Overview:
Rfam assigns this 218-nucleotide sequence from Tuber magnatum to the family "Group II catalytic intron D1-D4-6". Lineage of the source: Eukaryota > Dikarya > Pezizomycotina > Tuberaceae > Tuber. The match comes from Rfam's covariance-model search (157 bits).
RNA sequence: AGAGUCCGGUCCGGGUAAGCCGUAGCGGGCGCCCGGUAGCGAGUGUUGCGUAGUCGCCGGCGACGGCGGGUGCGAAGCGUACACAGCGAUUGUGAGGGGUGUGCUAUUGAGCCGCGAAAGCCAUAAAACCGCAGAGGCCGAGCCGGUAAGCAACGUCGAAGGCAACAUGUGCGGUCCCGCUAUGCGAGGGGCUGACGCUCUGCCGUGGUCGAAGAACA
Numbered sequence: 001a002g003a004g005u006c007c008g009g010u011c012c013g014g015g016u017a018a019g020c021c022g023u024a025g026c027g028g029g030c031g032c033c034c035g036g037u038a039g040c041g042a043g044u045g046u047u048g049c050g051u052a053g054u055c056g057c058c059g060g061c062g063a064c065g066g067c068g069g070g071u072g073c074g075a076a077g078c079g080u081a082c083a084c085a086g087c088g089a090u091u092g093u094g095a096g097g098g099g100u101g102u103g104c105u106a107u108u109g110a111g112c113c114g115c116g117a118a119a120g121c122c123a124u125a126a127a128a129c130c131g132c133a134g135a136g137g138c139c140g141a142g143c144c145g146g147u148a149a150g151c152a153a154c155g156u157c158g159a160a161g162g163c164a165a166c167a168u169g170u171g172c173g174g175u176c177c178c179g180c181u182a183u184g185c186g187a188g189g190g191g192c193u194g195a196c197g198c199u200c201u202g203c204c205g206u207g208g209u210c211g212a213a214g215a216a217c218a
Stems, first nucleotide, its partner, number of pairs: 012035004019030003023187001025185002037089001039087002043084004047079002049074004054069006108212001109210001111209006131203006137163003142157001144155002168197002172194007